[Rfam]
RNA: Purine riboswitch aptamer
Organism: Listeria fleischmannii
RNA sequence: ACAAUAAUUAAACAUGACACUUAUAUAAUAAUUGUGAUAUGGACAAUGAGUUUCUACCCGGUUGCCGUAAAUAACCGGACUAUGAGUGAUAUGCAUGAAUCA
Numbered sequence: 001a002c003a004a005u006a007a008u009u010a011a012a013c014a015u016g017a018c019a020c021u022u023a024u025a026u027a028a029u030a031a032u033u034g035u036g037a038u039a040u041g042g043a044c045a046a047u048g049a050g051u052u053u054c055u056a057c058c059c060g061g062u063u064g065c066c067g068u069a070a071a072u073a074a075c076c077g078g079a080c081u082a083u084g085a086g087u088g089a090u091a092u093g094c095a096u097g098a099a100u101c102a
Base pairs, nucleotide, nucleotide: 018088019087020086021085022084023083024082025081029049031047032046033045034044035043058078059077060076061075062074063073064072